Overview:
Shown here is a 90-nucleotide RNA from Tinamus guttatus, a member of the family "mir-204 microRNA precursor family". Gene Ontology terms of the family: RISC complex and miRNA-mediated post-transcriptional gene silencing. The literature on the family includes a 2005 paper in Genes Dev by Chen et al., "The developmental miRNA profiles of zebrafish as determined by small RNA cloning". NCBI's taxonomy places the organism under Eukaryota, Teleostomi, Archosauria, Saurischia, Tinamus.
[Rfam]
RNA sequence: CUGUGACCCAUGGACUUCCCUUUGUCAUCCUAUGUCUGAGAAUAUAUGAAGGGGGUUGGGAAUGCAAAGGGACAUUCAAUUGUCAUCACU
Numbered sequence: 001c002u003g004u005g006a007c008c009c010a011u012g013g014a015c016u017u018c019c020c021u022u023u024g025u026c027a028u029c030c031u032a033u034g035u036c037u038g039a040g041a042a043u044a045u046a047u048g049a050a051g052g053g054g055g056u057u058g059g060g061a062a063u064g065c066a067a068a069g070g071g072a073c074a075u076u077c078a079a080u081u082g083u084c085a086u087c088a089c090u
Base pairs, nucleotide, nucleotide: 017072018071019070020069021068022067024065025064028061029060030059031058032057034056035055036054037053